[Rfam]
RNA sequence: GAAGGUGUGGCCCUUCGACGUCGCCCUUCGGGGGGUGGCGUCAAACCACCGCAUGCUGCGUUGGCUGAAGACCGUCGUGGUGAGCGAUGCGGAAAAGGCGUCCCGGAGGCGUCAGGU
Numbered sequence: 001g002a003a004g005g006u007g008u009g010g011c012c013c014u015u016c017g018a019c020g021u022c023g024c025c026c027u028u029c030g031g032g033g034g035g036u037g038g039c040g041u042c043a044a045a046c047c048a049c050c051g052c053a054u055g056c057u058g059c060g061u062u063g064g065c066u067g068a069a070g071a072c073c074g075u076c077g078u079g080g081u082g083a084g085c086g087a088u089g090c091g092g093a094a095a096a097g098g099c100g101u102c103c104c105g106g107a108g109g110c111g112u113c114a115g116g117u
Base pairs, nucleotide, nucleotide: 001016002015003014004013005012017042018041019040020039021038022037024035025034026033027032047116049092050091051090052089053088054087055081056080058078059077060076062074063073064072097113098112099111100110101109102108
Shown here is a 117-nucleotide RNA sequence from Mycolicibacterium doricum, a member of the family "Group II catalytic intron D1-D4-2". The match comes from Rfam's covariance-model search (103 bits). The base pairs follow the family's consensus structure. Taxonomically the source falls in Mycobacterium (subgen. Mycolicibacterium) (Bacteria, Actinomycetota, Actinomycetes, Mycobacteriales). About the family: Group II introns are found in rRNA, tRNA and mRNA of organelles in fungi, plants and protists, and also in mRNA in bacteria.